[Rfam]
RNA sequence: GCCGGGGUGGGGUAGUUGGCCAUCCUUCGGGACUGUGGAUCCCGCGACUCGGGUUCAAAUCCCGGCCCUGGCC
Numbered sequence: 001g002c003c004g005g006g007g008u009g010g011g012g013u014a015g016u017u018g019g020c021c022a023u024c025c026u027u028c029g030g031g032a033c034u035g036u037g038g039a040u041c042c043c044g045c046g047a048c049u050c051g052g053g054u055u056c057a058a059a060u061c062c063c064g065g066c067c068c069u070g071g072c073c
Stems, first nucleotide, its partner, number of pairs: 001072007010026003028044005049065005
A member of the RNA family "tRNA" from Methanothermus fervidus, 73 nucleotides long. The sequence is in the family's curated seed alignment. Rfam links the family to the GO term triplet codon-amino acid adaptor activity. The organism belongs to Methanothermus, within Archaea.